[Rfam]
RNA sequence: CCUUUUUAGUCGCUGAAUCUAGAGAGCGGGGGAACCAAAUUCGAUGGAAUAGUUUUCUAUCAUGGGGUGAAUCUUAUUGAUAUAAGAAGGGAUACUCUCAAUCCCUAAUCCGACAGCUAACCUCGUAAGCGUUAUGUAACCGGGAGA
Numbered sequence: 001c002c003u004u005u006u007u008a009g010u011c012g013c014u015g016a017a018u019c020u021a022g023a024g025a026g027c028g029g030g031g032g033a034a035c036c037a038a039a040u041u042c043g044a045u046g047g048a049a050u051a052g053u054u055u056u057c058u059a060u061c062a063u064g065g066g067g068u069g070a071a072u073c074u075u076a077u078u079g080a081u082a083u084a085a086g087a088a089g090g091g092a093u094a095c096u097c098u099c100a101a102u103c104c105c106u107a108a109u110c111c112g113a114c115a116g117c118u119a120a121c122c123u124c125g126u127a128a129g130c131g132u133u134a135u136g137u138a139a140c141c142g143g144g145a146g147a
Base pairs, nucleotide, nucleotide: 011131012130013129014128018025019024026126027125028124029123030122031121036064037063065111066110067109073086074085075084076083089105090104091103092102
Shown here is a 147-nucleotide RNA from Halalkalibacter oceani, a member of the family "c-di-AMP riboswitch aptamer (ydaO/yuaA leader)". Taxonomically the source falls in Halalkalibacter (Bacteria, Bacillati, Caryophanales, Bacillaceae). This family represents a conserved RNA structure found upstream of the ydaO and yuaA genes in Bacillus subtilis and related genes in other bacteria. A search with the family's covariance model found it, with a score of 95 bits.